The record is a 97-nucleotide RNA sequence from Salinisphaera sp. Q1T1-3, which matches "Glycine riboswitch aptamer" in Rfam. It scores 58 bits against the family's covariance model. The source organism's lineage runs through Bacteria, Pseudomonadati, Pseudomonadota, Salinisphaeraceae and Salinisphaera.
RNA sequence: GCAAGACGCGUGGGAGAGCGCGACGGGCUCGGACCGUCGCCGCCGAAGGCGCAAUUCCCGCCCGGAAACGCUCAGGCCCAUGGACUGCGUGUCGGCU
Numbered sequence: 001g002c003a004a005g006a007c008g009c010g011u012g013g014g015a016g017a018g019c020g021c022g023a024c025g026g027g028c029u030c031g032g033a034c035c036g037u038c039g040c041c042g043c044c045g046a047a048g049g050c051g052c053a054a055u056u057c058c059c060g061c062c063c064g065g066a067a068a069c070g071c072u073c074a075g076g077c078c079c080a081u082g083g084a085c086u087g088c089g090u091g092u093c094g095g096c097u
Stems, first nucleotide, its partner, number of pairs: 006092008020040007042077003045073002049071003055065002